[Rfam]
RNA sequence: GUUUGAGUAAUGAUGAACUCUAUUUAGGACUAGAGUUUUCGAUGCUGCUACUUUGUUGGUGGUAGUUGAAGACAUGCCCUUGGCUGUCUGAACUCAAUC
Numbered sequence: 001g002u003u004u005g006a007g008u009a010a011u012g013a014u015g016a017a018c019u020c021u022a023u024u025u026a027g028g029a030c031u032a033g034a035g036u037u038u039u040c041g042a043u044g045c046u047g048c049u050a051c052u053u054u055g056u057u058g059g060u061g062g063u064a065g066u067u068g069a070a071g072a073c074a075u076g077c078c079c080u081u082g083g084c085u086g087u088c089u090g091a092a093c094u095c096a097a098u099c
Base pairs, nucleotide, nucleotide: 001099003097004096005095006094007093008092036071037070038069039068043064044063045062046061047060048059049058050057
Rfam assigns this 99-nucleotide RNA from Zea mays to the family "Small nucleolar RNA Z157/R69/R10". The match comes from Rfam's covariance-model search (63 bits). By type it is a C/D-box small nucleolar RNA. A reference for the family is Chen et al. (2003), "The high diversity of snoRNAs in plants: identification and comparative study of 120 snoRNA genes from Oryza sativa", Nucleic Acids Res. Taxonomically the source falls in Zea (Eukaryota, Streptophytina, Embryophyta, Liliopsida).